[Rfam]
The family of this 79-nucleotide RNA is "Flavo-1 RNA".
RNA sequence: GUGCGUUAGCGAUUGAUACGGUAUCCUUUUUUGUGCGCGCUUAUGCGCAAAAAAGAUAUAGUGGAAAGCGCGACUCUUG
Numbered sequence: 001g002u003g004c005g006u007u008a009g010c011g012a013u014u015g016a017u018a019c020g021g022u023a024u025c026c027u028u029u030u031u032u033g034u035g036c037g038c039g040c041u042u043a044u045g046c047g048c049a050a051a052a053a054a055g056a057u058a059u060a061g062u063g064g065a066a067a068g069c070g071c072g073a074c075u076c077u078u079g
Base pairs, nucleotide, nucleotide: 009071010070011069013067014066018062019061023057024056025055029052030051031050032049033048036047037046038045
Notes: It is annotated as a small RNA. Rfam's curators put it in the seed alignment.